[Rfam]
RNA: ARRPOF RNA
RNA sequence: AAAAAUCUUACUGUUAUAUUUGUAUCAAGAUUUGUAUAAGGGUUUUAUAACUUAUACAGCCAUUCUGCUCGAAAUGGUGUAGCAUUGGAAACAAUGGUACUACGAAUUGUAGCAACGCGAGAGUCGGCGUUUUAACAGGCUUGGCGGUCUCUUGAGUGGGUAUCUUAUGACAUUAAAAAUAGAAAGUAAGCUAUUAUGUCAGCUGUAGGGCAAGAGUUACAGUCGGUGAAAUUAAGCCGAAUAAGAUAAGU
Numbered sequence: 001a002a003a004a005a006u007c008u009u010a011c012u013g014u015u016a017u018a019u020u021u022g023u024a025u026c027a028a029g030a031u032u033u034g035u036a037u038a039a040g041g042g043u044u045u046u047a048u049a050a051c052u053u054a055u056a057c058a059g060c061c062a063u064u065c066u067g068c069u070c071g072a073a074a075u076g077g078u079g080u081a082g083c084a085u086u087g088g089a090a091a092c093a094a095u096g097g098u099a100c101u102a103c104g105a106a107u108u109g110u111a112g113c114a115a116c117g118c119g120a121g122a123g124u125c126g127g128c129g130u131u132u133u134a135a136c137a138g139g140c141u142u143g144g145c146g147g148u149c150u151c152u153u154g155a156g157u158g159g160g161u162a163u164c165u166u167a168u169g170a171c172a173u174u175a176a177a178a179a180u181a182g183a184a185a186g187u188a189a190g191c192u193a194u195u196a197u198g199u200c201a202g203c204u205g206u207a208g209g210g211c212a213a214g215a216g217u218u219a220c221a222g223u224c225g226g227u228g229a230a231a232u233u234a235a236g237c238c239g240a241a242u243a244a245g246a247u248a249a250g251u
Stems, first nucleotide, its partner, number of pairs: 007190006033058008060077005079100003083096005115130004121142005149216006161248008169200005178195005202223006224239004
Dot-bracket structure: ......[[[[[[....................((((((((..........)))))))).(((((........))))).(((.(((((....))))).)))..............[[[[..(((((.]]]].......)))))......{{{{{{......(((((((((((((....(((((..]]]]]])))))))))).((((((...}}}}}}.))))))((((........)))).))))))))...